[Rfam]
RNA: mir-317 microRNA precursor family
RNA sequence: CGUCUCUGCCACUGGGAUACUCCUUGUGCUCGCUGUGCAUAUCGAUUCAAACUAGUGAACACAUCUGGUGGUAUCUCAGUGGCCGGGAUG
Numbered sequence: 001c002g003u004c005u006c007u008g009c010c011a012c013u014g015g016g017a018u019a020c021u022c023c024u025u026g027u028g029c030u031c032g033c034u035g036u037g038c039a040u041a042u043c044g045a046u047u048c049a050a051a052c053u054a055g056u057g058a059a060c061a062c063a064u065c066u067g068g069u070g071g072u073a074u075c076u077c078a079g080u081g082g083c084c085g086g087g088a089u090g
Base pairs, nucleotide, nucleotide: 008083009082010081011080012079015077016075017074019072020071022068023067025063026062028060030058031057